[Rfam]
RNA sequence: AAGUAGCUGAGAACCUUUUGAAUCACUAUAUUACUUGAUUCAAAAGGUUCUUACAAAU
Numbered sequence: 001a002a003g004u005a006g007c008u009g010a011g012a013a014c015c016u017u018u019u020g021a022a023u024c025a026c027u028a029u030a031u032u033a034c035u036u037g038a039u040u041c042a043a044a045a046g047g048u049u050c051u052u053a054c055a056a057a058u
Base pairs, nucleotide, nucleotide: 008053009052010051011050012049013048014047015046016045017044018043019042020041021040022039023038024037025036
Shown here is a 58-nucleotide sequence from Passiflora misera, a member of the family "Plastid-ccsA-ndhD-1 3UTR RNA".
Plastid-ccsA-ndhD-1 is a non-coding RNA (ncRNA) recognised in plastids. It was found in the three prime untranslated region (3UTR) of ccsA and ndhD genes, its 3UTR location suggests a role in transcript maturation.
It is one of the family's seed sequences.
By type it is a cis-regulatory element.